[Rfam]
RNA sequence: AUUGCAGUGCCAAAGUGCUUACAGUGCAGGUAGUCUUGUAAUACCUACUGCAGUGAAGGCACUUUAAGCACUGCACU
Numbered sequence: 001a002u003u004g005c006a007g008u009g010c011c012a013a014a015g016u017g018c019u020u021a022c023a024g025u026g027c028a029g030g031u032a033g034u035c036u037u038g039u040a041a042u043a044c045c046u047a048c049u050g051c052a053g054u055g056a057a058g059g060c061a062c063u064u065u066a067a068g069c070a071c072u073g074c075a076c077u
Stems, first nucleotide, its partner, number of pairs: 004074004009069002013064008022055002025052003029049005
Source information:
A member of the RNA family "mir-17 microRNA precursor family" from Esox lucius, 77 nucleotides long. Its family is annotated with RISC complex and miRNA-mediated post-transcriptional gene silencing in the Gene Ontology. A search with the family's covariance model found it, with a score of 76 bits. The literature on the family includes a 2001 paper in Cell by Ambros, "microRNAs: tiny regulators with great potential". From the family's description: This family represents the microRNA (miRNA) precursor mir-17, family, which includes mir-20, mir-91, and mir-103. miRNAs are transcribed as ~70nt precursors (modelled here) and subsequently processed by the Dicer enzyme to give a ~22nt product. In this case the mature sequence comes from the 3' arm of the precursor. The extents of the hairpin precursors are not generally known and are estimated based on hairpin prediction. The source organism's lineage runs through Eukaryota, Teleostomi, Actinopterygii, Esocidae and Esox.